[Rfam]
RNA sequence: GUAUGUCCGUGCAUCGUGGUCUCUGCCCGAACCGACCCUGGCGUACUUCCCCAACGCCAGGUUCGCGCAUUCGGACAGGGACCAGGGUGCAGGGACGGUAGGGC
Numbered sequence: 001g002u003a004u005g006u007c008c009g010u011g012c013a014u015c016g017u018g019g020u021c022u023c024u025g026c027c028c029g030a031a032c033c034g035a036c037c038c039u040g041g042c043g044u045a046c047u048u049c050c051c052c053a054a055c056g057c058c059a060g061g062u063u064c065g066c067g068c069a070u071u072c073g074g075a076c077a078g079g080g081a082c083c084a085g086g087g088u089g090c091a092g093g094g095a096c097g098g099u100a101g102g103g104c
Base pairs, nucleotide, nucleotide: 010091011090012089013088014087015086018083019082021080022079023078024077025076027074028073029072030071031070032067033065034064035063037061038060039059040058041057042056043055044054
RNA: mraW RNA
Organism: Mycobacterium spongiae